[Rfam]
RNA sequence: GGUAGUGUGUCCGAGCGGCCGAAGGUGUUCGACUCGAAAUCGAAUGUGGGUAAAACCACCGCGGGUUCAAAUCCCGCCACUACCG
Numbered sequence: 001g002g003u004a005g006u007g008u009g010u011c012c013g014a015g016c017g018g019c020c021g022a023a024g025g026u027g028u029u030c031g032a033c034u035c036g037a038a039a040u041c042g043a044a045u046g047u048g049g050g051u052a053a054a055a056c057c058a059c060c061g062c063g064g065g066u067u068c069a070a071a072u073c074c075c076g077c078c079a080c081u082a083c084c085g
Stems, first nucleotide, its partner, number of pairs: 001084007011025002028044005061077005
The record is an 85-nucleotide RNA from Corynebacterium pilosum, which matches "tRNA" in Rfam. By type it is a transfer RNA. The base pairs follow the family's consensus structure, which is taken from published work.